[Rfam]
RNA sequence: UUCUUAUCCAGAGUGGCGGAGGGACUGGCCCGAUGAAGCCCGGCAACCUCGGUGAUCAGCCAAUCACCGGAUGGUGCCAAUUCCUGCAGCGGUUGAAACCGCUGAAAGAUAAGAA
Numbered sequence: 001u002u003c004u005u006a007u008c009c010a011g012a013g014u015g016g017c018g019g020a021g022g023g024a025c026u027g028g029c030c031c032g033a034u035g036a037a038g039c040c041c042g043g044c045a046a047c048c049u050c051g052g053u054g055a056u057c058a059g060c061c062a063a064u065c066a067c068c069g070g071a072u073g074g075u076g077c078c079a080a081u082u083c084c085u086g087c088a089g090c091g092g093u094u095g096a097a098a099c100c101g102c103u104g105a106a107a108g109a110u111a112a113g114a115a
Stems, first nucleotide, its partner, number of pairs: 001115008013041001015040003021031003025086001027084002042078004047074002049070007082107001087104006

A member of the RNA family "SAM riboswitch aptamer (S box leader)" from Thermoactinomyces sp. AS95, 115 nucleotides long.